A member of the RNA family "ssNA-helicase RNA", 48 nucleotides long.
RNA sequence: UAGCGUAAAAGGUAGUAUUACCUUUUACGUUACAAGCAGCUUGUAGCA
Numbered sequence: 001u002a003g004c005g006u007a008a009a010a011g012g013u014a015g016u017a018u019u020a021c022c023u024u025u026u027a028c029g030u031u032a033c034a035a036g037c038a039g040c041u042u043g044u045a046g047c048a
Base pairs, nucleotide, nucleotide: 001032002031003030004029005028006027008025009024010023011022012021